Shown here is a 108-nucleotide sequence from Solicola gregarius, a member of the family "TPP riboswitch aptamer (THI element)".

[Rfam]
RNA sequence: GCACACAGACAGGGGAGCGCCGCGUAGGGCGCUGAGAGUGCGGAGCAGCCGCAGACCCUUGAACCUGCACCGGUUAGCACCGGCGAAGGGAGUCAGACAAUGAGUUCU
Dot-bracket structure: .....(.(((((((..(((((......)))))......(((((.....)))))..))))....(((...((((......))))...)))..))).)............
Numbered sequence: 001g002c003a004c005a006c007a008g009a010c011a012g013g014g015g016a017g018c019g020c021c022g023c024g025u026a027g028g029g030c031g032c033u034g035a036g037a038g039u040g041c042g043g044a045g046c047a048g049c050c051g052c053a054g055a056c057c058c059u060u061g062a063a064c065c066u067g068c069a070c071c072g073g074u075u076a077g078c079a080c081c082g083g084c085g086a087a088g089g090g091a092g093u094c095a096g097a098c099a100a101u102g103a104g105u106u107c108u
Stems, first nucleotide, its partner, number of pairs: 006096001008094003011059004017032005039053005064089003070083004
Taxonomically the source falls in Solicola (Bacteria, Actinomycetota, Propionibacteriales, Nocardioidaceae). Pairs were carried over by alignment from the consensus structure, which is taken from published work.